[Rfam]
RNA sequence: AGACCUCAUUCCUUUACUCGGAUCGUCCGGCACGUUCCUGCCGGUGAAGGGACCAC
Numbered sequence: 001a002g003a004c005c006u007c008a009u010u011c012c013u014u015u016a017c018u019c020g021g022a023u024c025g026u027c028c029g030g031c032a033c034g035u036u037c038c039u040g041c042c043g044g045u046g047a048a049g050g051g052a053c054c055a056c
Stems, first nucleotide, its partner, number of pairs: 010051007027044006